Lysine riboswitch aptamer: a 188-nucleotide RNA sequence from Lachnospiraceae bacterium 10-1. Lineage of the source: Bacteria > Bacillati > Clostridia > Lachnospirales > Lachnospiraceae. Riboswitches are metabolite binding domains within certain messenger RNAs that serve as precision sensors for their corresponding targets. Rfam 15.1 lists 3,224 matches to the family in 1,923 species.

[Rfam]
RNA sequence: UUUUGAGGUAGAGGUUGCGUGUUUUAUGAGUAGUUUUUUGGAUGUGGCAGGCACAGAAGAAGGAAAAUGAAAGGAAAAAACGCCGAAAGAAUCUGAAGGCUGUGAUCGGAUUCUUGGGCAUACAGUGAAUAACUGUAUGACUGUCAUUUGCAGUUAUGAAAGGCUGCUGAUGGGGCGCUAUCCGAUGA
Number, nucleotide and partner (000 for none) at each position: 001u000002u000003u000004u000005g000006a000007g182008g181009u180010a179011g178012a000013g000014g000015u000016u000017g083018c082019g081020u080021g000022u078023u077024u076025u075026a000027u000028g000029a000030g000031u000032a000033g068034u067035u066036u065037u064038u063039u062040g000041g000042a000043u000044g000045u000046g000047g000048c000049a000050g000051g000052c000053a000054c000055a000056g000057a000058a000059g000060a000061a000062g039063g038064a037065a036066a035067a034068u033069g000070a000071a000072a000073g000074g000075a025076a024077a023078a022079a000080a020081c019082g018083c017084c000085g000086a000087a115088a114089g113090a112091a111092u110093c109094u108095g107096a106097a000098g000099g000100c000101u000102g000103u000104g000105a000106u096107c095108g094109g093110a092111u091112u090113c089114u088115u087116g142117g141118g000119c139120a138121u137122a136123c135124a134125g133126u132127g000128a000129a000130u000131a000132a126133c125134u124135g123136u122137a121138u120139g119140a000141c117142u116143g000144u173145c172146a171147u170148u169149u000150g167151c166152a165153g164154u163155u000156a000157u000158g000159a000160a000161a000162g000163g154164c153165u152166g151167c150168u000169g148170a147171u146172g145173g144174g000175g000176c000177g000178c011179u010180a009181u008182c007183c000184g000185a000186u000187g000188a000